[Rfam]
RNA sequence: AUGAAAAUUUUAAAGGCCACAACUUGCAGACUUGGAGGUUUUGAUGACUUCAACUUGCAAACUUGAUGGAUUUGGAGACUUCAGCU
Number, nucleotide and partner (000 for none) at each position: 001a000002u083003g082004a081005a080006a000007a000008u000009u076010u075011u074012a073013a072014a071015g000016g000017c068018c000019a000020c065021a064022a000023c000024u000025u059026g058027c057028a056029g000030a000031c000032u053033u052034g051035g050036a049037g048038g000039u000040u000041u000042u000043g000044a000045u000046g000047a000048c037049u036050u035051c034052a033053a032054c000055u000056u028057g027058c026059a025060a000061a000062c000063u000064u021065g020066a000067u000068g017069g000070a000071u014072u013073u012074g011075g010076a009077g000078a000079c000080u005081u004082c003083a002084g000085c000086u000
MIR8024 microRNA precursor family: an 86-nucleotide RNA sequence from Capsicum baccatum. Lineage of the source: Eukaryota > Magnoliopsida > Gunneridae > Solanaceae > Capsicum. The match comes from Rfam's covariance-model search (72 bits). Rfam links the family to the GO terms miRNA-mediated post-transcriptional gene silencing and RISC complex.